[Rfam]
RNA: FMN riboswitch aptamer (RFN element)
RNA sequence: CCCUGUUCUCAGGGCGGGGUGAAAUUCCCCACCGGCGGUAUGCGGGCACCGACCCGUAAGCCCGCGAGCGGCCUCAUGCGAGGUGUCAGCAGAUCUGGUGAGAGGCCAGAGCCGACGGUGACAGUCCGGAUGAAAGAGGACGCGC
Dot-bracket structure: ...(((((((......(((.......))).[[((((((.....................[[))))..((...................))...(((((.......)))))]])).(((.....]]))).......)))))))...